[Rfam]
RNA sequence: UCAACAAGAAUCUUGCUUCAGGGGUUCACACACUGAGUACUCUGUUACUUUAUAACCCCGGGAAGGUCUGAGGCAAAAUCGCCAACCCCCCAGCCGGGGGCCUUCUUGACAAAGUUGGGCAGGAGAACCAGAAAUUGGUCCAGUUCUAAAAUUUUUAGGUCUGAGAUGCCUUUGGUUGAGACUAUAAUUUUGGGUACUGUUGGAACCUCCUGUGAUUCGCAUUUUUAGUUCAAUUUGCAAGGUUCUAGCUAUGCUAGUAUAACUCAAUUCAGACUAUUCUCUUGUUGA
Number, nucleotide and partner (000 for none) at each position: 001u288002c287003a286004a285005c000006a000007a282008g281009a280010a000011u000012c241013u240014u239015g238016c237017u000018u000019c000020a000021g059022g058023g057024g056025u055026u000027c000028a000029c000030a000031c000032a000033c000034u000035g050036a049037g048038u047039a046040c044041u000042c000043u000044g040045u000046u039047a038048c037049u036050u035051u000052a000053u000054a000055a025056c024057c023058c022059c021060g000061g000062g000063a000064a000065g000066g000067u000068c272069u271070g270071a269072g268073g000074c000075a000076a000077a217078a216079u215080c214081g000082c000083c000084a000085a000086c100087c099088c098089c097090c096091c000092a000093g000094c000095c000096g090097g089098g088099g087100g086101c118102c117103u000104u000105c114106u113107u000108g000109a000110c000111a000112a000113a106114g105115u000116u000117g102118g101119g213120c212121a211122g210123g209124a208125g207126a000127a000128c000129c000130a000131g000132a000133a000134a000135u000136u000137g000138g000139u000140c199141c000142a000143g000144u000145u000146c000147u000148a000149a000150a000151a000152u000153u000154u000155u000156u000157a000158g000159g000160u000161c000162u000163g000164a000165g000166a000167u000168g000169c000170c000171u000172u000173u000174g000175g000176u000177u000178g000179a000180g000181a000182c000183u000184a000185u000186a000187a000188u000189u000190u000191u000192g000193g000194g000195u000196a000197c000198u000199g140200u000201u000202g000203g000204a000205a000206c000207c125208u124209c123210c122211u121212g120213u119214g080215a079216u078217u077218c000219g000220c000221a000222u000223u000224u000225u000226u000227a000228g000229u000230u000231c000232a000233a000234u000235u000236u000237g016238c015239a014240a013241g012242g260243u259244u000245c257246u256247a255248g254249c000250u000251a000252u000253g000254c248255u247256a246257g245258u000259a243260u242261a000262a000263c000264u000265c000266a000267a000268u072269u071270c070271a069272g068273a000274c000275u000276a000277u000278u000279c000280u009281c008282u007283u000284g000285u004286u003287g002288a001
Rfam assigns this 288-nucleotide sequence from Aphis craccivora to the family "Nuclear RNase P". The source organism's lineage runs through Eukaryota, Opisthokonta, Bilateria, Altocrustacea and Aphis. The family's consensus secondary structure is taken from published work. Gene Ontology terms of the family: ribonuclease P activity, ribonuclease P complex and tRNA processing.